[Rfam]
RNA sequence: CCUGCGGCGGAUGUAAUUCCGAUAAUGGGCUAGAGUGCGGCGUGACCAUGCUGCGCGAGGACGACUUUGCGUCCUCAUCUGAGCCUGUAGAUUGCUACAGCGCUCCCUGGUCCGUCAUGUUCCCUUCGGGGGACAUGACGGUCAGGUUU
Numbered sequence: 001c002c003u004g005c006g007g008c009g010g011a012u013g014u015a016a017u018u019c020c021g022a023u024a025a026u027g028g029g030c031u032a033g034a035g036u037g038c039g040g041c042g043u044g045a046c047c048a049u050g051c052u053g054c055g056c057g058a059g060g061a062c063g064a065c066u067u068u069g070c071g072u073c074c075u076c077a078u079c080u081g082a083g084c085c086u087g088u089a090g091a092u093u094g095c096u097a098c099a100g101c102g103c104u105c106c107c108u109g110g111u112c113c114g115u116c117a118u119g120u121u122c123c124c125u126u127c128g129g130g131g132g133a134c135a136u137g138a139c140g141g142u143c144a145g146g147u148u149u
Base pairs, nucleotide, nucleotide: 008021009020010019011018035056036055037054038053039052040051041050042049043048057076058075059074060073061072062071063070081105082104083103084102087098088097089096090095106146107145108144109143110142112141113140114139115138116137117136118135119134120133121132122131123130
Shown here is a 149-nucleotide sequence from Pararobbsia alpina, a member of the family "sbcD RNA". A search with the family's covariance model found it, with a score of 99 bits. The base pairs follow the family's consensus structure, which is taken from published work. Rfam classes the family as a small RNA.